RNA sequence: AAUUUUGUGUGUAGGAACAAAAAUAAGUAGAUUCAUUCUAUACCUGAUAAGUACCAAUACACAAUGGUA
Numbered sequence: 001a002a003u004u005u006u007g008u009g010u011g012u013a014g015g016a017a018c019a020a021a022a023a024u025a026a027g028u029a030g031a032u033u034c035a036u037u038c039u040a041u042a043c044c045u046g047a048u049a050a051g052u053a054c055c056a057a058u059a060c061a062c063a064a065u066g067g068u069a
Stems, first nucleotide, its partner, number of pairs: 003022002006019003010015001044067002051060003

The record is a 69-nucleotide sequence from Quercus lobata, which matches "Plastid-clpP 5UTR RNA" in Rfam. Lineage of the source: Eukaryota > Streptophyta > Tracheophyta > Euphyllophyta > Quercus. Pairs were carried over by alignment from the consensus structure, which was predicted with LocARNA. Rfam describes the family as follows. Plastid clpP is a non-coding RNA (ncRNA) recognised in plastids. It was found in the prime untranslated region (5UTR) of a protease complex subunit (clpP) in plastids, suggesting a posible cis-regulatory function. Rfam classes the family as a cis-regulatory element.